[Rfam]
RNA sequence: GCCGAGUCCGGUUGCGCUGGCUUAUGACCCGAGUGGGGGCGUUAUAUUGAUGGAACGGAAGGUUUCAUCCUGGUGGGCUGGAUCUGUCGUGGCUUCAUUCUGGGCCGCCCGUUUCAAGCAUGGAGAAAGCCAUGGAGCUUAGGCGGAGGCCCAAGUACCAUGGGCUUGUAAAGCGGGGGAGAACGCGUGAGGCUGGCUUCACAGAGCAACGUCAACUUCCCUCUCCUUGCAGUGGAAGGAUAACGGUCCGUGUCCGUCGGGUCCAAUUUGUCCCAGUGGGGUGCCCCUCACCGAACCAUCCUUCUU
Numbered sequence: 001g002c003c004g005a006g007u008c009c010g011g012u013u014g015c016g017c018u019g020g021c022u023u024a025u026g027a028c029c030c031g032a033g034u035g036g037g038g039g040c041g042u043u044a045u046a047u048u049g050a051u052g053g054a055a056c057g058g059a060a061g062g063u064u065u066c067a068u069c070c071u072g073g074u075g076g077g078c079u080g081g082a083u084c085u086g087u088c089g090u091g092g093c094u095u096c097a098u099u100c101u102g103g104g105c106c107g108c109c110c111g112u113u114u115c116a117a118g119c120a121u122g123g124a125g126a127a128a129g130c131c132a133u134g135g136a137g138c139u140u141a142g143g144c145g146g147a148g149g150c151c152c153a154a155g156u157a158c159c160a161u162g163g164g165c166u167u168g169u170a171a172a173g174c175g176g177g178g179g180a181g182a183a184c185g186c187g188u189g190a191g192g193c194u195g196g197c198u199u200c201a202c203a204g205a206g207c208a209a210c211g212u213c214a215a216c217u218u219c220c221c222u223c224u225c226c227u228u229g230c231a232g233u234g235g236a237a238g239g240a241u242a243a244c245g246g247u248c249c250g251u252g253u254c255c256g257u258c259g260g261g262u263c264c265a266a267u268u269u270g271u272c273c274c275a276g277u278g279g280g281g282u283g284c285c286c287c288u289c290a291c292c293g294a295a296c297c298a299u300c301c302u303u304c305u306u
Stems, first nucleotide, its partner, number of pairs: 001040003004023005010017001028037003044305001046303001049300005056293002058289002061285003065281002068279002071276001073274001075273004080264007090256003095252001101250007109239002112237005118230003122226005127167004131162005137156004142151003175220005185212004193204003
RNA: Plant signal recognition particle RNA